Notes
Rfam assigns this 132-nucleotide RNA sequence from Cuscuta europaea to the family "small nucleolar RNA snoR137". Lineage of the source: Eukaryota > Tracheophyta > Magnoliopsida > eudicotyledons > Cuscuta subgen. Cuscuta.
[Rfam]
RNA sequence: GUUGCUUCAUAUGGUGAGUGCCCUCUUUGAAAGUGAGGGAUGCUCUAGUUUCCGAAGCAUAGAUCAAAUGGCAGUAUUAAACAGCAUAGUGCAUUUUCCAUUGCACGUUGCUACCUGUCUCCUUCUACAGUU
Number, nucleotide and partner (000 for none) at each position: 001g000002u000003u059004g058005c057006u056007u055008c054009a000010u000011a000012u000013g000014g000015u000016g045017a044018g043019u042020g000021c039022c038023c037024u036025c000026u000027u000028u000029g000030a000031a000032a000033g000034u000035g000036a024037g023038g022039g021040a000041u000042g019043c018044u017045c016046u000047a000048g000049u000050u000051u000052c000053c000054g008055a007056a006057g005058c004059a003060u000061a000062g000063a000064u000065c000066a000067a000068a000069u000070g126071g125072c000073a123074g122075u000076a120077u000078u000079a000080a000081a000082c000083a112084g111085c110086a000087u000088a000089g106090u105091g104092c000093a000094u000095u000096u000097u000098c000099c000100a000101u000102u000103g000104c091105a090106c089107g000108u000109u000110g085111c084112u083113a000114c000115c000116u000117g000118u000119c000120u076121c000122c074123u073124u000125c071126u070127a000128c000129a000130g000131u000132u000